Rfam assigns this 87-nucleotide RNA from Ornithorhynchus anatinus to the family "mir-1419 microRNA precursor family". On this family, see Murchison et al., Genome Res 2008: "Conservation of small RNA pathways in platypus". Its family is annotated with RISC complex and miRNA-mediated post-transcriptional gene silencing in the Gene Ontology. Rfam's curators put it in the seed alignment.
RNA sequence: UGAUGGUGUCACGCACAGUGCCGGGAGGUGGCAUCAGGUGCUAACUCGUUUCCUGAUAUCAUCACCCAGCAUCGCGCAUGUCCAUCA
Numbered sequence: 001u002g003a004u005g006g007u008g009u010c011a012c013g014c015a016c017a018g019u020g021c022c023g024g025g026a027g028g029u030g031g032c033a034u035c036a037g038g039u040g041c042u043a044a045c046u047c048g049u050u051u052c053c054u055g056a057u058a059u060c061a062u063c064a065c066c067c068a069g070c071a072u073c074g075c076g077c078a079u080g081u082c083c084a085u086c087a
Stems, first nucleotide, its partner, number of pairs: 001087003005083002010080002018072004023067003027063004033057005